Rfam assigns this 95-nucleotide RNA from Theobroma cacao to the family "Small nucleolar RNA snoR8a".
The base pairs follow the family's consensus structure, which was predicted with WAR.
The family has 7 seed sequences and 956 matches in Rfam 15.1.
A reference for the family is Brown et al. (2001), "Multiple snoRNA gene clusters from Arabidopsis", RNA.
RNA sequence: AAGUUAGCGAUGAUUAUAAAAAUAAUUUUUCAUUCUGACUUGCUUAAUUUGGACAUAACAAACCUCUUAUUACAACCAUAGAAUCUAAGCUCGAC
Number, nucleotide and partner (000 for none) at each position: 001a000002a000003g095004u094005u000006a091007g090008c000009g000010a000011u000012g000013a000014u000015u000016a000017u000018a000019a000020a000021a000022a000023u000024a000025a000026u000027u000028u000029u000030u000031c000032a000033u000034u000035c000036u000037g000038a000039c000040u000041u000042g000043c000044u000045u000046a000047a000048u000049u000050u000051g000052g000053a000054c000055a000056u000057a000058a000059c000060a000061a000062a000063c000064c000065u000066c000067u000068u000069a000070u000071u000072a000073c000074a000075a000076c000077c000078a000079u000080a000081g000082a000083a000084u000085c000086u000087a000088a000089g000090c007091u006092c000093g000094a004095c003